[Rfam]
RNA sequence: GUCCUCCAGGAACAGCAAGGAUCUUAAACUUUGCCAGAGCUACAAAGGCAAAGUUUAAGAUCCUUGAAGUUCCUGGGGGAA
Numbered sequence: 001g002u003c004c005u006c007c008a009g010g011a012a013c014a015g016c017a018a019g020g021a022u023c024u025u026a027a028a029c030u031u032u033g034c035c036a037g038a039g040c041u042a043c044a045a046a047g048g049c050a051a052a053g054u055u056u057a058a059g060a061u062c063c064u065u066g067a068a069g070u071u072c073c074u075g076g077g078g079g080a081a
Stems, first nucleotide, its partner, number of pairs: 002080012016066020
Dot-bracket structure: .((((((((((((..((((((((((((((((((((...........))))))))))))))))))))..)))))))))))).
The record is an 81-nucleotide RNA sequence from Pan troglodytes, which matches "mir-561 microRNA precursor family" in Rfam. The family has 2 seed sequences and 10 matches in Rfam 15.1. Lineage of the source: Eukaryota > Opisthokonta > Primates > Hominidae > Pan.